[Rfam]
RNA sequence: CGUAUGGUGUGCGACUUCGGGUCGUAUAGCGAUACGGCCUUAUUAUUUGAGGU
Numbered sequence: 001c002g003u004a005u006g007g008u009g010u011g012c013g014a015c016u017u018c019g020g021g022u023c024g025u026a027u028a029g030c031g032a033u034a035c036g037g038c039c040u041u042a043u044u045a046u047u048u049g050a051g052g053u
Stems, first nucleotide, its partner, number of pairs: 001036005007030002011025006
RNA: L31-Gammaproteobacteria ribosomal protein leader